Overview: Shown here is a 358-nucleotide part of an RNA from an uncultured archaeon, a member of the family "Archaeal large subunit ribosomal RNA".

RNA sequence: CGGAAUUACACUGGCUAAGGGAAUUCGGCAAAUUAGCUCCGUAACUUCGGAAGAAGGAGUGCCUGCCGUGAAGACGGCAGGUCGCAGUGACCAGGGAGCUCUAACUGUUUAAUACAAACAUAGCUGACCGCAACUCCGAAAGGACUAGUACGGUCAGUGAAUCCUGCCCAGUGCAGGUACCUGAAAACCCGGUUCAACGGGGCGAAGGGCCUGUCAACGGCGGGGGUAACUAUGACCCUCUUAAGGUAGCGUAGUACCUUGCCGCUUAAUUGGCGGCUUGCAUGAAUGGAUCAAUGAGAGCUCUACUGUCCCUAGCCAGAAUCCGGUGAACUUUACAUUCUAGUGCAGAGUCUAGAGA
Numbered sequence: 001c002g003g004a005a006u007u008a009c010a011c012u013g014g015c016u017a018a019g020g021g022a023a024u025u026c027g028g029c030a031a032a033u034u035a036g037c038u039c040c041g042u043a044a045c046u047u048c049g050g051a052a053g054a055a056g057g058a059g060u061g062c063c064u065g066c067c068g069u070g071a072a073g074a075c076g077g078c079a080g081g082u083c084g085c086a087g088u089g090a091c092c093a094g095g096g097a098g099c100u101c102u103a104a105c106u107g108u109u110u111a112a113u114a115c116a117a118a119c120a121u122a123g124c125u126g127a128c129c130g131c132a133a134c135u136c137c138g139a140a141a142g143g144a145c146u147a148g149u150a151c152g153g154u155c156a157g158u159g160a161a162u163c164c165u166g167c168c169c170a171g172u173g174c175a176g177g178u179a180c181c182u183g184a185a186a187a188c189c190c191g192g193u194u195c196a197a198c199g200g201g202g203c204g205a206a207g208g209g210c211c212u213g214u215c216a217a218c219g220g221c222g223g224g225g226g227u228a229a230c231u232a233u234g235a236c237c238c239u240c241u242u243a244a245g246g247u248a249g250c251g252u253a254g255u256a257c258c259u260u261g262c263c264g265c266u267u268a269a270u271u272g273g274c275g276g277c278u279u280g281c282a283u284g285a286a287u288g289g290a291u292c293a294a295u296g297a298g299a300g301c302u303c304u305a306c307u308g309u310c311c312c313u314a315g316c317c318a319g320a321a322u323c324c325g326g327u328g329a330a331c332u333u334u335a336c337a338u339u340c341u342a343g344u345g346c347a348g349a350g351u352c353u354a355g356a357g358a
Stems, first nucleotide, its partner, number of pairs: 001325004011319007019311003036060005045050001061082009083087001095304007102296002106120003123158008131148001135144003161291004166221003171218002173214005180209003188201004222240006241245001261277006339356005

Notes:
It is one of the family's seed sequences.